[Rfam]
RNA sequence: AUUUGAUGAGGGCAAACAUGUGGAAACAUAUGGACGCAAAGUUGGGAGUCUAAGGGGAUAAAGAUAAUAAGACAUUAUAUAACGUAUUUAGAGAUAUUUCUAAGAUAGUCCGACCGCAAUG
Numbered sequence: 001a002u003u004u005g006a007u008g009a010g011g012g013c014a015a016a017c018a019u020g021u022g023g024a025a026a027c028a029u030a031u032g033g034a035c036g037c038a039a040a041g042u043u044g045g046g047a048g049u050c051u052a053a054g055g056g057g058a059u060a061a062a063g064a065u066a067a068u069a070a071g072a073c074a075u076u077a078u079a080u081a082a083c084g085u086a087u088u089u090a091g092a093g094a095u096a097u098u099u100c101u102a103a104g105a106u107a108g109u110c111c112g113a114c115c116g117c118a119a120u121g
Stems, first nucleotide, its partner, number of pairs: 012037002017032006041114003045111003048106003055100006
RNA: c-di-GMP-I riboswitch aptamer